[Rfam]
RNA sequence: UAGUGUUGUGAUGAUGGGCAAAAUGUUCAGUUGCUCUGAAUUGGCUGAAUGAAAUUAGCCUUUCUGAACAUCC
Numbered sequence: 001u002a003g004u005g006u007u008g009u010g011a012u013g014a015u016g017g018g019c020a021a022a023a024u025g026u027u028c029a030g031u032u033g034c035u036c037u038g039a040a041u042u043g044g045c046u047g048a049a050u051g052a053a054a055u056u057a058g059c060c061u062u063u064c065u066g067a068a069c070a071u072c073c
Base pairs, nucleotide, nucleotide: 003071004070005069006068
This 73-nucleotide RNA sequence from Jaculus jaculus belongs to the Rfam family "Small nucleolar RNA Z40". The family's RNA type in Rfam is C/D-box small nucleolar RNA. A search with the family's covariance model found it, with a score of 86 bits. Its family is annotated with nucleolus and RNA processing in the Gene Ontology. Lineage of the source: Eukaryota > Tetrapoda > Theria > Glires > Jaculus. The family has 5 seed sequences and 615 matches in Rfam 15.1.